[Rfam]
RNA: Ribosomal protein L19 leader
Organism: Bacillus sp. Y1
RNA sequence: ACGAUGUUCCGCUGCAAUCAGUAAGUGCUUCAGUUAUGCAUGAGCGUCUG
Numbered sequence: 001a002c003g004a005u006g007u008u009c010c011g012c013u014g015c016a017a018u019c020a021g022u023a024a025g026u027g028c029u030u031c032a033g034u035u036a037u038g039c040a041u042g043a044g045c046g047u048c049u050g
Base pairs, nucleotide, nucleotide: 003048004047005046006045007044008043009042013040014039015038016037